[Rfam]
RNA sequence: UUCCGGGUGAUGAAGAAAAUCGUUCGGAUUCCCACUGAUAUUGCAUGAUUAGUGUAACCAGCUAAUUCUGAUGGAC
Dot-bracket structure: .((((..................................................................)))).
RNA: Small nucleolar RNA R12